[Rfam]
Nucleotides: 062
Base pairs, nucleotide, nucleotide: 034059035057036055037054038053040051041050042049043048
Number, partner (000 for none) and nucleotide at each position: 001000c002000a003000g004000u005000u006000u007000u008000a009000c010000a011000g012000c013000u014000c015000u016000u017000u018000u019000a020000g021000a022000a023000u024000u025000u026000g027000u028000c029000u030000a031000g032000c033000a034059g035057u036055u037054u038053u039000c040051u041050g042049u043048u044000u045000u046000g047000u048043g049042a050041u051040g052000u053038a054037a055036a056000g057035g058000g059034c060000c061000c062000c